[Rfam]
RNA: MIR828 microRNA precursor family
RNA sequence: GUAAUAUUUCUUGCUCAAAUGAGUAUUCCAGCCGCGACAGUUGCGUAACUGGCCGGCCGGCCGGUGCAUGCUAGCUGCUUCUGCUGAUCAAUCUGAGAUACUCAUUUGAGCAAGCAACGUUAA
Numbered sequence: 001g002u003a004a005u006a007u008u009u010c011u012u013g014c015u016c017a018a019a020u021g022a023g024u025a026u027u028c029c030a031g032c033c034g035c036g037a038c039a040g041u042u043g044c045g046u047a048a049c050u051g052g053c054c055g056g057c058c059g060g061c062c063g064g065u066g067c068a069u070g071c072u073a074g075c076u077g078c079u080u081c082u083g084c085u086g087a088u089c090a091a092u093c094u095g096a097g098a099u100a101c102u103c104a105u106u107u108g109a110g111c112a113a114g115c116a117a118c119g120u121u122a123a
Stems, first nucleotide, its partner, number of pairs: 004120002007117002010114018029095002
Dot-bracket structure: ...((.((.((((((((((((((((((.((...............................................................)).)))))))))))))))))).)).))...